Rfam assigns this 132-nucleotide RNA sequence from Legionella longbeachae to the family "Group II catalytic intron D1-D4-7". The pairing is the family consensus, mapped onto this sequence. The match comes from Rfam's covariance-model search (70 bits). On this family, see Bonen and Vogel, Trends Genet 2001: "The ins and outs of group II introns".
[Rfam]
RNA sequence: CCGUUCAUACCACUGAACGAAGCUAGGGCCAUGAAUAAAGAGCUGGCCUGACAAUGUAACAAAAGAGGGGAAGCUCUCUGGGGGACGUAUCGUGAGAGAAGCCCUUCCUGGUAGCCAUAUCUGGGUAAGUGC
Numbered sequence: 001c002c003g004u005u006c007a008u009a010c011c012a013c014u015g016a017a018c019g020a021a022g023c024u025a026g027g028g029c030c031a032u033g034a035a036u037a038a039a040g041a042g043c044u045g046g047c048c049u050g051a052c053a054a055u056g057u058a059a060c061a062a063a064a065g066a067g068g069g070g071a072a073g074c075u076c077u078c079u080g081g082g083g084g085a086c087g088u089a090u091c092g093u094g095a096g097a098g099a100a101g102c103c104c105u106u107c108c109u110g111g112u113a114g115c116c117a118u119a120u121c122u123g124g125g126u127a128a129g130u131g132c
Base pairs, nucleotide, nucleotide: 002019003018004017005016006015007014027048028047029046030045031044032039064079065078066077067076068075069074080105081104082103083102090097091096107125108124109123110122111121
Group II introns are found in rRNA, tRNA and mRNA of organelles in fungi, plants and protists, and also in mRNA in bacteria.
Its family is annotated with Group II intron splicing in the Gene Ontology.
The family has 244 seed sequences and 1,296 matches in Rfam 15.1.